RNA sequence: CCUAGCUUAUUGUUUAGAGGUCUGUCUCCCAAGACAGACUAAUGAAGGGCAGUAACUUGGGCUACACGCUUACCCAUAAUGUAGCAAAAGUGCUACAAUAAAAUACAAUGGCGAUAGUUAGUAGCUAUAAAAGGUGUGUGGGAAGCCCUUUCGCGAAUAUUGGAGCCAUGGUGGAUAAAUAAUUAUGGAUAAGCUAGCCGGU
Numbered sequence: 001c002c003u004a005g006c007u008u009a010u011u012g013u014u015u016a017g018a019g020g021u022c023u024g025u026c027u028c029c030c031a032a033g034a035c036a037g038a039c040u041a042a043u044g045a046a047g048g049g050c051a052g053u054a055a056c057u058u059g060g061g062c063u064a065c066a067c068g069c070u071u072a073c074c075c076a077u078a079a080u081g082u083a084g085c086a087a088a089a090g091u092g093c094u095a096c097a098a099u100a101a102a103a104u105a106c107a108a109u110g111g112c113g114a115u116a117g118u119u120a121g122u123a124g125c126u127a128u129a130a131a132a133g134g135u136g137u138g139u140g141g142g143a144a145g146c147c148c149u150u151u152c153g154c155g156a157a158u159a160u161u162g163g164a165g166c167c168a169u170g171g172u173g174g175a176u177a178a179a180u181a182a183u184u185a186u187g188g189a190u191a192a193g194c195u196a197g198c199c200g201g202u
Base pairs, nucleotide, nucleotide: 001061002060003059004058005057007055008054009053010052011051012050013049014048015047068194069193070192071191072190074188075187076186077185078176080174108169109168110167111166112165115162116161117160118159124154125153
Source information:
The family of this 202-nucleotide RNA is "RT-16 RNA". It is one of the family's seed sequences.